[Rfam]
RNA sequence: UAGCUUAUCAGACUGGUGUUGACUGUUUGAAUCACAUGGCGACAACGGUCUGUAAGCUGU
Numbered sequence: 001u002a003g004c005u006u007a008u009c010a011g012a013c014u015g016g017u018g019u020u021g022a023c024u025g026u027u028u029g030a031a032u033c034a035c036a037u038g039g040c041g042a043c044a045a046c047g048g049u050c051u052g053u054a055a056g057c058u059g060u
Stems, first nucleotide, its partner, number of pairs: 001059008011050005017044005023038001
About this RNA:
The family of this 60-nucleotide sequence from Salmo salar is "mir-21 microRNA precursor family". Rfam links the family to the GO terms miRNA-mediated post-transcriptional gene silencing and RISC complex. Pairs were carried over by alignment from the consensus structure, which was predicted with RNAalifold. The organism belongs to Salmo, within Eukaryota. The literature on the family includes a 2006 paper in FEBS Lett by Xu et al., "Identification of microRNAs from different tissues of chicken embryo and adult chicken". Rfam's curators put it in the seed alignment.